Annotation
F6 TB sRNA: a 57-nucleotide sequence from Nocardia puris. Rfam classes the family as a small RNA. The organism belongs to Nocardia, within Bacteria.
RNA sequence: AGAUCGGCUCCGCGCAGUUGCCAGACCCCCGACCCGGCAACUGCGCGGGGCCCUUUC
Numbered sequence: 001a002g003a004u005c006g007g008c009u010c011c012g013c014g015c016a017g018u019u020g021c022c023a024g025a026c027c028c029c030c031g032a033c034c035c036g037g038c039a040a041c042u043g044c045g046c047g048g049g050g051c052c053c054u055u056u057c
Stems, first nucleotide, its partner, number of pairs: 002056002007051016

Notes: For this family Rfam cites "Identification of small RNAs in Mycobacterium tuberculosis" (Arnvig and Young, Mol Microbiol, 2009).